RNA sequence: UUUGGUGCAGUGAUGAGGAUAUUGUGGACUAGAGUUUCUGAUCUGGUAUAUAAUACCAGCAGUUGAAGACAAACCCUUGGCUGUCUGAGCACUACA
Numbered sequence: 001u002u003u004g005g006u007g008c009a010g011u012g013a014u015g016a017g018g019a020u021a022u023u024g025u026g027g028a029c030u031a032g033a034g035u036u037u038c039u040g041a042u043c044u045g046g047u048a049u050a051u052a053a054u055a056c057c058a059g060c061a062g063u064u065g066a067a068g069a070c071a072a073a074c075c076c077u078u079g080g081c082u083g084u085c086u087g088a089g090c091a092c093u094a095c096a
Base pairs, nucleotide, nucleotide: 001096003094004093005092006091007090008089035068036067037066038065042061043059044058045057046056047055